[Rfam]
Nucleotides: 375
Stems, first nucleotide, its partner, number of pairs: 006024006025373004033353004039333002044068006053061002075329003080111002085106003089102001091100003115132005135325002138323008146311002151306005159293004165286003170280005175196006197255001201250003208243003213236007221229002258271005339348002355367004
Number, partner (000 for none) and nucleotide at each position: 001000g002000a003000u004000a005000a006024g007023g008022g009021g010020a011019g012000u013000g014000a015000a016000a017000a018000a019011c020010u021009u022008c023007c024006c025373c026372g027371c028370c029000g030000a031000a032000a033353g034352a035351c036350c037000a038000a039333g040332g041000g042000u043000u044068c045067c046066u047065a048064u049063c050000c051000c052000a053061u054060g055000c056000u057000a058000a059000u060054c061053a062000g063049g064048g065047u066046a067045g068044g069000g070000u071000g072000a073000g074000u075329c076328g077327a078000c079000u080111c081110c082000u083000a084000a085106g086105g087104c088000g089102a090000g091100g092099c093098u094000g095000a096000a097000a098093a099092g100091c101000g102089u103000a104087g105086u106085c107000g108000a109000u110081g111080g112000g113000a114000a115132a116131c117130g118129g119128g120000u121000u122000a123000a124000u125000a126000u127000u128119c129118c130117c131116g132115u133000a134000c135325c136324g137000a138323c139322c140321a141320a142319u143318a144317c145316u146311g147310c148000g149000a150000u151306g152305g153304g154303g155302u156000g157000a158000c159293g160292g161291a162290g163000a164000a165286a166285g167284c168000u169000a170280g171279g172278c173277a174276a175196g176195c177194g178193c179192g180191g181000c182000g183000u184000u185000g186000g187000u188000a189000g190000u191180c192179c193178g194177c195176g196175u197255g198000a199000a200000a201250g202249u203248a204000a205000g206000u207000a208243g209242g210241c211000u212000g213236a214235g215234a216233g217232a218231c219230u220000a221229g222228g223000c224000a225000a226000a227000u228222c229221c230219g231218g232217u233216u234215u235214c236213u237000u238000a239000a240000g241210g242209c243208u244000g245000a246000g247000a248203u249202a250201c251000g252000a253000g254000a255197c256000g257000a258271g259270u260269g261268u262267c263000u264000a265000a266000g267262g268261a269260c270259a271258c272000g273000a274000a275000g276174u277173u278172g279171u280170u281000g282000a283000c284167g285166c286165u287000a288000u289000g290162c291161u292160u293159c294000c295000a296000g297000g298000a299000a300000a301000a302155a303154c304153c305152u306151c307000u308000a309000a310147g311146c312000u313000u314000c315000a316145g317144g318143u319142a320141u321140u322139g323138g324136u325135g326000a327077u328076c329075g330000u331000a332040c333039c334000c335000g336000a337000a338000a339348c340347c341000g342000a343000c344000a345000c346000a347340g348339g349000u350036g351035g352034u353033c354000a355367g356366g357365u358364a359000g360000a361000g362000c363000a364358u365357a366356c367355c368000a369000a370028g371027g372026c373025g374000c375000u